This 87-nucleotide RNA sequence from Cocos nucifera belongs to the Rfam family "Small nucleolar RNA U61".
It is annotated as a C/D-box small nucleolar RNA.
The family's consensus secondary structure was predicted with WAR.
For this family Rfam cites "Plant snoRNA database" (Brown et al., Nucleic Acids Res, 2003).

[Rfam]
RNA sequence: AGGCGAUGAUGAUGUGUGAUCUCGUGUACCGGAGAUGGAUGCGUCCAUCAGUGAUGGCAACACAACCCUCUAAGAAGUUCUGAGCCU
Number, nucleotide and partner (000 for none) at each position: 001a087002g086003g085004c084005g000006a000007u000008g000009a000010u000011g000012a000013u000014g000015u000016g000017u000018g000019a000020u000021c000022u000023c000024g000025u000026g000027u000028a000029c000030c000031g000032g000033a000034g000035a000036u000037g000038g000039a000040u000041g000042c000043g000044u000045c000046c000047a000048u000049c000050a000051g000052u000053g000054a000055u000056g000057g000058c000059a000060a000061c000062a000063c000064a000065a000066c000067c000068c000069u000070c000071u000072a000073a000074g000075a000076a000077g000078u000079u000080c000081u000082g000083a000084g004085c003086c002087u001

Rfam links the family to the GO terms nucleolus and RNA processing. Lineage of the source: Eukaryota > Viridiplantae > Magnoliopsida > Attaleinae > Cocos.